RNA sequence: UGUCUCCUCCACUUCUUGCAAAGGAAUUGGAUUCAGCCCGCUUUCACCAGCGGGCUUUUUUUU
Numbered sequence: 001u002g003u004c005u006c007c008u009c010c011a012c013u014u015c016u017u018g019c020a021a022a023g024g025a026a027u028u029g030g031a032u033u034c035a036g037c038c039c040g041c042u043u044u045c046a047c048c049a050g051c052g053g054g055c056u057u058u059u060u061u062u063u
Base pairs, nucleotide, nucleotide: 008031009030010029011028013026014025015024016023017022035056036055037054038053039052040051041050042049
Overview:
The family of this 63-nucleotide sequence from Rugamonas rivuli is "Betaproteobacteria toxic small RNA". It scores 54 bits against the family's covariance model. About the family: Overexpression in amino aid rich medium attenuates growth, suggesting role in repressing amino acid intake and metabolism. For this family Rfam cites "Identification of small RNAs abundant in Burkholderia cenocepacia biofilms reveal putative regulators with a potential role in carbon and iron metabolism" (Sass et al., Sci Rep, 2017).